[Rfam]
RNA sequence: GUCUUAUCUAGAGUGGUGGAGGGAAAGGCCCGACGAAGCCACAGCAACCGGUCUCUUUGUAAAAGGGGACGACAGGUGCUAAAUCCUGCCUUUAUGGCAAAGAUGAGAU
Numbered sequence: 001g002u003c004u005u006a007u008c009u010a011g012a013g014u015g016g017u018g019g020a021g022g023g024a025a026a027g028g029c030c031c032g033a034c035g036a037a038g039c040c041a042c043a044g045c046a047a048c049c050g051g052u053c054u055c056u057u058u059g060u061a062a063a064a065g066g067g068g069a070c071g072a073c074a075g076g077u078g079c080u081a082a083a084u085c086c087u088g089c090c091u092u093u094a095u096g097g098c099a100a101a102g103a104u105g106a107g108a109u
Stems, first nucleotide, its partner, number of pairs: 001109008013042005021031003026087003043080004048076002051073003084101001089097002
This 109-nucleotide RNA sequence from a Geobacteraceae bacterium belongs to the Rfam family "SAM riboswitch aptamer (S box leader)". The source organism's lineage runs through Bacteria, Pseudomonadati, Thermodesulfobacteriota, Geobacterales and Geobacteraceae. It scores 76 bits against the family's covariance model. The family's consensus secondary structure is taken from published work.